[Rfam]
RNA sequence: CAUUUAACGAAGAAAAGUCCGAAGUAGUGAUUAUACAUACUGUUUAGAGAGCUAACGGUCGGUGAAAGUUAGUCAGUGUAUAAAAGCGAAUUACAGGCUUGGAGUUAUACGUUUUCACAACGUUACAUGUGAAAAAGCGGAAGGAUUGAUCCUUCAAGCUGGGUGGUACCGCGCUAAUGACUAAGCGUCCCUGCA
Numbered sequence: 001c002a003u004u005u006a007a008c009g010a011a012g013a014a015a016a017g018u019c020c021g022a023a024g025u026a027g028u029g030a031u032u033a034u035a036c037a038u039a040c041u042g043u044u045u046a047g048a049g050a051g052c053u054a055a056c057g058g059u060c061g062g063u064g065a066a067a068g069u070u071a072g073u074c075a076g077u078g079u080a081u082a083a084a085a086g087c088g089a090a091u092u093a094c095a096g097g098c099u100u101g102g103a104g105u106u107a108u109a110c111g112u113u114u115u116c117a118c119a120a121c122g123u124u125a126c127a128u129g130u131g132a133a134a135a136a137g138c139g140g141a142a143g144g145a146u147u148g149a150u151c152c153u154u155c156a157a158g159c160u161g162g163g164u165g166g167u168a169c170c171g172c173g174c175u176a177a178u179g180a181c182u183a184a185g186c187g188u189c190c191c192u193g194c195a
Base pairs, nucleotide, nucleotide: 007105008104015100016099017098018097027087028086031083032082040076041075042074051073052072053071054070055069056068110122111121112120140155141154142153143152144151145150161191162190163189171188172187173186174185175184
About this RNA:
The record is a 195-nucleotide sequence from Psychrobacillus sp. BL-248-WT-3, which matches "T-box leader" in Rfam. A search with the family's covariance model found it, with a score of 112 bits. The family's consensus secondary structure is taken from published work.